[Rfam]
Shown here is a 138-nucleotide RNA sequence from Gasterosteus aculeatus, a member of the family "Small nucleolar RNA SNORA8". Its Rfam clan is "SNORA8 clan". It is annotated as an H/ACA-box small nucleolar RNA. The source organism's lineage runs through Eukaryota, Bilateria, Neoteleostei, Gasterosteidae and Gasterosteus. Rfam links the family to the GO terms RNA processing and nucleolus. About the family: ACA8 is a member of the H/ACA class of snoRNA that guide the sites of modification of uridines to pseudouridines.
Nucleotides: 138
Stems, first nucleotide, its partner, number of pairs: 002060006014054002017051001018046004023041001024039005064126003068122001070119004080107006
Number, partner (000 for none) and nucleotide at each position: 001000a002060g003059c004058a005057c006056u007055g008000u009000g010000u011000g012000g013000u014054a015053u016000c017051u018046g019045c020044a021043g022000c023041c024039a025038g026037u027036u028035g029000g030000u031000u032000c033000c034000u035028c036027a037026g038025c039024u040000g041023g042000u043021u044020u045019g046018u047000u048000c049000a050000a051017a052000a053015g054014u055007c056006a057005g058004u059003g060002c061000u062000a063000g064126a065125a066124c067000a068122a069000c070119u071118c072117a073116g074000c075000g076000u077000c078000u079000g080107g081106c082105a083104u084103c085102g086000u087000u088000g089000g090000u091000c092000u093000c094000c095000a096000u097000g098000c099000u100000g101000c102085c103084g104083g105082u106081g107080u108000g109000u110000g111000g112000a113000g114000u115000c116073c117072u118071g119070g120000u121000a122068u123000g124066g125065u126064u127000g128000u129000u130000g131000a132000g133000a134000c135000a136000c137000u138000a